[Rfam]
RNA sequence: GGUUGGGUGAAUUAUUAGUUCACUUUCAAGAGAUUGGACUUCUGGGGUGGGAAGCU
Numbered sequence: 001g002g003u004u005g006g007g008u009g010a011a012u013u014a015u016u017a018g019u020u021c022a023c024u025u026u027c028a029a030g031a032g033a034u035u036g037g038a039c040u041u042c043u044g045g046g047g048u049g050g051g052a053a054g055c056u
Stems, first nucleotide, its partner, number of pairs: 003029003006024006037056001039054005
Na+ riboswitch aptamer (DUF1646): a 56-nucleotide sequence. The family's consensus secondary structure is taken from published work. The sequence is in the family's curated seed alignment.